[Rfam]
RNA sequence: GGUGAAGCAGCCACAAGAUGGGCUGAAGUACUGCUCUGUUUGUCACUACACCUCCCUAGAACAAACUGCCCUUCGAUGAGCGGGACAAAUUGAGAGAAACUGUAAUGGACAGAUACGGGGCAGACAGUU
Numbered sequence: 001g002g003u004g005a006a007g008c009a010g011c012c013a014c015a016a017g018a019u020g021g022g023c024u025g026a027a028g029u030a031c032u033g034c035u036c037u038g039u040u041u042g043u044c045a046c047u048a049c050a051c052c053u054c055c056c057u058a059g060a061a062c063a064a065a066c067u068g069c070c071c072u073u074c075g076a077u078g079a080g081c082g083g084g085a086c087a088a089a090u091u092g093a094g095a096g097a098a099a100c101u102g103u104a105a106u107g108g109a110c111a112g113a114u115a116c117g118g119g120g121c122a123g124a125c126a127g128u129u
Base pairs, nucleotide, nucleotide: 001055002054004052013043014042015041016040020036021035022034023033066123067122068121069120070119071118072117081107082106085103086102087101
The family of this 129-nucleotide sequence from Erinaceus europaeus is "Small Cajal body specific RNA 8". Rfam's curators write: scaRNAs are a specific class of small nuclear RNAs which localise to the Cajal bodies and guide the modification of RNA polymerase II transcribed spliceosomal RNAs U1, U2, U4, U5 and U12. The family has 22 seed sequences and 955 matches in Rfam 15.1. By type it is a small Cajal body RNA. Its family is annotated with Cajal body, nucleolus and RNA processing in the Gene Ontology.